[Rfam]
Annotation:
Rfam assigns this 156-nucleotide RNA sequence from Cnephaeus nilssonii to the family "U12 minor spliceosomal RNA". By type it is a spliceosomal small nuclear RNA. NCBI's taxonomy places the organism under Eukaryota, Dipnotetrapodomorpha, Amniota, Mammalia, Cnephaeus.
RNA sequence: AUGAUAAGACAGACCUGCCUCCCCCCCCCCAAAUAACGAUUCGGGGUGAUGCCCGAAUCCUCACUGCUAAUGUGAGAUGAAUUUUUGAGCAGGUAAAGGUUAGCCCUAAGGUGACAAGCCUACUUUGCAGGAUGCCUGGGUGUUGCGAUCUGCCCG
Numbered sequence: 001a002u003g004a005u006a007a008g009a010c011a012g013a014c015c016u017g018c019c020u021c022c023c024c025c026c027c028c029c030c031a032a033a034u035a036a037c038g039a040u041u042c043g044g045g046g047u048g049a050u051g052c053c054c055g056a057a058u059c060c061u062c063a064c065u066g067c068u069a070a071u072g073u074g075a076g077a078u079g080a081a082u083u084u085u086u087g088a089g090c091a092g093g094u095a096a097a098g099g100u101u102a103g104c105c106c107u108a109a110g111g112u113g114a115c116a117a118g119c120c121u122a123c124u125u126u127g128c129a130g131g132a133u134g135c136c137u138g139g140g141u142g143u144u145g146c147g148a149u150c151u152g153c154c155c156g
Base pairs, nucleotide, nucleotide: 038059039058040057041056042055043054044053045052060076061075062074063073064072090156092154093153094152097151098150099149100148101147106140107139109137110136111135112134113133115131118128119127
Dot-bracket structure: .....................................((((((((......))))))))(((((.......))))).............(.(((..(((((....((.(((((.(..((.......))..).))))).))......)))))))).)